TPP riboswitch aptamer (THI element): a 97-nucleotide sequence from Rhizobium sp. AC44/96. Pairs were carried over by alignment from the consensus structure, which is taken from published work. The organism belongs to Rhizobium, within Bacteria. The match comes from Rfam's covariance-model search (65 bits).

[Rfam]
RNA sequence: GAUGAGAGACAGGGGCGCACGCCGGAAGGCGGGCUGAGAAGUACCCUUUGAACCUGAACCAGAUAAUGCUGGCGGAGGGAGUCGCUCGGGACUUUCC
Numbered sequence: 001g002a003u004g005a006g007a008g009a010c011a012g013g014g015g016c017g018c019a020c021g022c023c024g025g026a027a028g029g030c031g032g033g034c035u036g037a038g039a040a041g042u043a044c045c046c047u048u049u050g051a052a053c054c055u056g057a058a059c060c061a062g063a064u065a066a067u068g069c070u071g072g073c074g075g076a077g078g079g080a081g082u083c084g085c086u087c088g089g090g091a092c093u094u095u096c097c
Stems, first nucleotide, its partner, number of pairs: 006085001008083003011047004016041001017034002020031002053078003059072004